Rfam assigns this 106-nucleotide RNA from Vombatus ursinus to the family "mir-223 microRNA precursor family". Pairs were carried over by alignment from the consensus structure, which was predicted with RNAalifold. NCBI's taxonomy places the organism under Eukaryota, Eumetazoa, Chordata, Vertebrata, Vombatus. The literature on the family includes a 2003 paper in Science by Lim et al., "Vertebrate microRNA genes".
RNA sequence: CUGCAGGUCCGCAGUGUCACACUCCGUGUAUUUGACAAGCUGAGUUGGACACUCCGUGUGGUAGAGUGUCAGUUUGUCAAAUACCCCAAGUGAGACAUUUGCCUAG
Dot-bracket structure: ...................((((..(.((((((((((((((......((((.((.........)).)))))))))))))))))).)..))))..............